[Rfam]
RNA: Streptococcus sRNA SpF59 (ldcC RNA)
Nucleotides: 050
Base pairs, nucleotide, nucleotide: 001042002041003040004039005038006017007016008015009014
Number, partner (000 for none) and nucleotide at each position: 001042u002041g003040c004039c005038c006017a007016c008015c009014c010000g011000a012000a013000a014009g015008g016007g017006u018000u019000a020000a021000g022000g023000c024000c025000a026000u027000a028000c029000g030000g031000a032000c033000a034000g035000c036000c037000g038005g039004g040003g041002c042001a043000a044000g045000u046000g047000c048000c049000g050000a